[Rfam]
A member of the RNA family "Small nucleolar RNA SNORA25" from Oryctolagus cuniculus, 120 nucleotides long. Rfam describes the family as follows. ACA25 is a member of the H/ACA class of snoRNA that guide the sites of modification of uridines to pseudouridines.
RNA sequence: AGUCAUUUCAAAAAGGGCUUGUAAGGAUAGGAAACCAAGAGUUCUUAAAGCUGUGAACUAAAAUGGAAUUUCUCCUUAAGAUGCCACAGUAGUGCCAUGUUUUCCUGAGGAGAUACACGA
Numbered sequence: 001a002g003u004c005a006u007u008u009c010a011a012a013a014a015g016g017g018c019u020u021g022u023a024a025g026g027a028u029a030g031g032a033a034a035c036c037a038a039g040a041g042u043u044c045u046u047a048a049a050g051c052u053g054u055g056a057a058c059u060a061a062a063a064u065g066g067a068a069u070u071u072c073u074c075c076u077u078a079a080g081a082u083g084c085c086a087c088a089g090u091a092g093u094g095c096c097a098u099g100u101u102u103u104c105c106u107g108a109g110g111a112g113a114u115a116c117a118c119g120a
Stems, first nucleotide, its partner, number of pairs: 002058001003056004013046008022038001025036002071113005078106001080104002086098001089095002

Rfam 15.1 lists 1,129 matches to the family in 449 species. The organism belongs to Oryctolagus, within Eukaryota.